RNA sequence: CCUCCCGAAACAUGUCGAAGCAUGACCUCGCCAGAGGCGGGGGGCGAGGUAGAGCACCGAUUAGGGGAGCCGGAUGGGAGACCAUUCGUCCUCUUGUCGAACUCCAAACUCGUCCCCACCAGAGAAGGCGGGAAGUCCGGGCUGGGGGGUAAGCUUCUAGUCCGUAAGGGAGACAACCCAGACCCGGGUUAAGGCCCCAAAUUUGUCGGCUAAGUGUUAACACUGAAAGGCGUCCCAGGCCCUUGACAACUGGGAGGUGAGCUUAGAAGCAGCUAUCCUCUAAGAAAAGCGUAACAGCUUACCAGUCGAGGUCUGGGGCCCUGAAAAUGGACGGGGCUCAAGCCGACAGCCGAGACCCGGGAGUAUCGAGAGAUAACCUCGUAGGGAGGCACUCCGCGGGCGUGGAAGCAGGGCCGCGAGGUCCUGUGGAGCGCGCGGAGAAGAAAAU
Numbered sequence: 001c002c003u004c005c006c007g008a009a010a011c012a013u014g015u016c017g018a019a020g021c022a023u024g025a026c027c028u029c030g031c032c033a034g035a036g037g038c039g040g041g042g043g044g045c046g047a048g049g050u051a052g053a054g055c056a057c058c059g060a061u062u063a064g065g066g067g068a069g070c071c072g073g074a075u076g077g078g079a080g081a082c083c084a085u086u087c088g089u090c091c092u093c094u095u096g097u098c099g100a101a102c103u104c105c106a107a108a109c110u111c112g113u114c115c116c117c118a119c120c121a122g123a124g125a126a127g128g129c130g131g132g133a134a135g136u137c138c139g140g141g142c143u144g145g146g147g148g149g150u151a152a153g154c155u156u157c158u159a160g161u162c163c164g165u166a167a168g169g170g171a172g173a174c175a176a177c178c179c180a181g182a183c184c185c186g187g188g189u190u191a192a193g194g195c196c197c198c199a200a201a202u203u204u205g206u207c208g209g210c211u212a213a214g215u216g217u218u219a220a221c222a223c224u225g226a227a228a229g230g231c232g233u234c235c236c237a238g239g240c241c242c243u244u245g246a247c248a249a250c251u252g253g254g255a256g257g258u259g260a261g262c263u264u265a266g267a268a269g270c271a272g273c274u275a276u277c278c279u280c281u282a283a284g285a286a287a288a289g290c291g292u293a294a295c296a297g298c299u300u301a302c303c304a305g306u307c308g309a310g311g312u313c314u315g316g317g318g319c320c321c322u323g324a325a326a327a328u329g330g331a332c333g334g335g336g337c338u339c340a341a342g343c344c345g346a347c348a349g350c351c352g353a354g355a356c357c358c359g360g361g362a363g364u365a366u367c368g369a370g371a372g373a374u375a376a377c378c379u380c381g382u383a384g385g386g387a388g389g390c391a392c393u394c395c396g397c398g399g400g401c402g403u404g405g406a407a408g409c410a411g412g413g414c415c416g417c418g419a420g421g422u423c424c425u426g427u428g429g430a431g432c433g434c435g436c437g438g439a440g441a442a443g444a445a446a447a448u
Stems, first nucleotide, its partner, number of pairs: 001389006011024005026135001027132006036120002040117008052105001053103002059098003063094006072087006139163009168179003183361007193351003202348001205347006228322003232319010249306005255279003260274003280284001285300001289298002362379002364375004390443001392440007400432002408427008
Archaeal large subunit ribosomal RNA: a 448-nucleotide part of an RNA from Methanocella conradii. The family's consensus secondary structure is taken from published work. NCBI's taxonomy places the organism under Archaea, Methanobacteriati, Methanocellales, Methanocella, Methanocella conradii. The match comes from Rfam's covariance-model search (2790 bits).